Rfam assigns this 116-nucleotide sequence from Aquamicrobium sp. LC103 to the family "Alphaproteobacterial ar14". Pairs were carried over by alignment from the consensus structure. The family's RNA type in Rfam is small RNA. It scores 76 bits against the family's covariance model.
RNA sequence: GAGACAGUCAACGGCCUACCUCCUCCCAGGCCAAUGACAAGUCCUGCGGCGCACCUCCUCCCGCGUCGCAUGAUCGAUCAGGCCUGCCGGACCUCCUCCCCCGGCGGGCCUUUUUC
Dot-bracket structure: ......(((...((((............))))...)))...((.(((((((............))))))).))......(((((((((((..........))))))))))).....